RNA: TPP riboswitch aptamer (THI element)
RNA sequence: CCAAGAGACACGGGGUGCCCCGAUUGCGGCGGCUGAGAUCACACCCGUUGAACCUGAUCUAGUUCGUACUAGCGAAGGGAUGUCUGCGGAUGACGGA
Numbered sequence: 001c002c003a004a005g006a007g008a009c010a011c012g013g014g015g016u017g018c019c020c021c022g023a024u025u026g027c028g029g030c031g032g033c034u035g036a037g038a039u040c041a042c043a044c045c046c047g048u049u050g051a052a053c054c055u056g057a058u059c060u061a062g063u064u065c066g067u068a069c070u071a072g073c074g075a076a077g078g079g080a081u082g083u084c085u086g087c088g089g090a091u092g093a094c095g096g097a
Stems, first nucleotide, its partner, number of pairs: 006085005011047004016041001017033003021029001053078003059072004